Source information
The family of this 86-nucleotide RNA sequence from Eurystomus gularis is "Small nucleolar RNA U2-19". A reference for the family is Tycowski et al. (2004), "Guide RNAs with 5' Caps and Novel Box C/D snoRNA-like Domains for Modification of snRNAs in Metazoa", Curr Biol. Rfam classes the family as a C/D-box small nucleolar RNA. A search with the family's covariance model found it, with a score of 50 bits.
RNA sequence: GGUCUGUGAUGAGAAAUAGCCAAAUCUGACCACGGGAAGAUUAAAAACAAUCUUCCAGGUGUCGUGAUUUGUAUCCAGCUCUGAGA
Numbered sequence: 001g002g003u004c005u006g007u008g009a010u011g012a013g014a015a016a017u018a019g020c021c022a023a024a025u026c027u028g029a030c031c032a033c034g035g036g037a038a039g040a041u042u043a044a045a046a047a048c049a050a051u052c053u054u055c056c057a058g059g060u061g062u063c064g065u066g067a068u069u070u071g072u073a074u075c076c077a078g079c080u081c082u083g084a085g086a
Base pairs, nucleotide, nucleotide: 031061032060033059038053039052040051041050